[Rfam]
RNA sequence: AUCCCUGCUCCGGGGUGUCGUCCGCGCAAGUGGAGGGCUGAGAUGGUCGAACCGAACCCGUGAACUUGACUCGGAUCAUGCCGACGUAAGAAGAGCUGUUAGCCAGGCC
Numbered sequence: 001a002u003c004c005c006u007g008c009u010c011c012g013g014g015g016u017g018u019c020g021u022c023c024g025c026g027c028a029a030g031u032g033g034a035g036g037g038c039u040g041a042g043a044u045g046g047u048c049g050a051a052c053c054g055a056a057c058c059c060g061u062g063a064a065c066u067u068g069a070c071u072c073g074g075a076u077c078a079u080g081c082c083g084a085c086g087u088a089a090g091a092a093g094a095g096c097u098g099u100u101a102g103c104c105a106g107g108c109c
Base pairs, nucleotide, nucleotide: 007096008095009094010093011060012059013058014057016054017038018037019036021034022033023032024031045053046052047051065090066089067088068087071084072083073082074081
Rfam assigns this 109-nucleotide sequence from Curvibacter sp. PAE-UM to the family "TPP riboswitch aptamer (THI element)". Lineage of the source: Bacteria > Pseudomonadati > Betaproteobacteria > Comamonadaceae > Curvibacter.